A member of the RNA family "mraW RNA" from Antrihabitans stalagmiti, 104 nucleotides long. The family's RNA type in Rfam is cis-regulatory element.
RNA sequence: GAAGGCGAGUGCCGCGAGGCCUCUGCCCGACCGGGACCCUGACGCACUUCCCCAGCGCCAGGUUCCCCAAUCGGACAGGGACCCCGAAGCAUUCGCACCCACGU
Numbered sequence: 001g002a003a004g005g006c007g008a009g010u011g012c013c014g015c016g017a018g019g020c021c022u023c024u025g026c027c028c029g030a031c032c033g034g035g036a037c038c039c040u041g042a043c044g045c046a047c048u049u050c051c052c053c054a055g056c057g058c059c060a061g062g063u064u065c066c067c068c069a070a071u072c073g074g075a076c077a078g079g080g081a082c083c084c085c086g087a088a089g090c091a092u093u094c095g096c097a098c099c100c101a102c103g104u
Base pairs, nucleotide, nucleotide: 010091011090012089015086016085018083019082021080022079023078024077025076027074028073029072030071033068034067035065036064038062039061040060041059043057044056045055

The match comes from Rfam's covariance-model search (67 bits). The family's consensus secondary structure is taken from published work.